[Rfam]
RNA sequence: AGCUUUCUGAUGUUGAUGAUACUGCAUCAGGAACUGAUUGGAGCGCGAUGACCGGCCAACAGUUCCUAAUGCACUGCCUUCAGCAUUGAAAGA
Numbered sequence: 001a002g003c004u005u006u007c008u009g010a011u012g013u014u015g016a017u018g019a020u021a022c023u024g025c026a027u028c029a030g031g032a033a034c035u036g037a038u039u040g041g042a043g044c045g046c047g048a049u050g051a052c053c054g055g056c057c058a059a060c061a062g063u064u065c066c067u068a069a070u071g072c073a074c075u076g077c078c079u080u081c082a083g084c085a086u087u088g089a090a091a092g093a
Base pairs, nucleotide, nucleotide: 023073024072025071026070027069029067030066031065032064033063034062035061036060039058040057041056